[Rfam]
RNA: Small nucleolar RNA SNORD2
RNA sequence: ACGUGAAGUGAUGUUGUCAUCUUUCGGGACUGACAUGAAAUGAAGUCACCCCCAAUGCUGAUCAUUU
Numbered sequence: 001a002c003g004u005g006a007a008g009u010g011a012u013g014u015u016g017u018c019a020u021c022u023u024u025c026g027g028g029a030c031u032g033a034c035a036u037g038a039a040a041u042g043a044a045g046u047c048a049c050c051c052c053c054a055a056u057g058c059u060g061a062u063c064a065u066u067u
Stems, first nucleotide, its partner, number of pairs: 001067001003065004